Source information: TPP riboswitch aptamer (THI element): a 98-nucleotide RNA from Shouchella oshimensis. A search with the family's covariance model found it, with a score of 70 bits. The family's consensus secondary structure is taken from published work.

RNA sequence: AAAAUCCACUAGGGGUGCGAAAAGCUGAGAGAGGAUAAAUCCUUAACCCUUUACCUGAUCUAGAUAAUGCUAGCGAAGGGAAGUGCGAUAUGUAAACC
Dot-bracket structure: ......((((((((..((.....))......((((....))))...))))...(((...((((......))))...)))..)))).............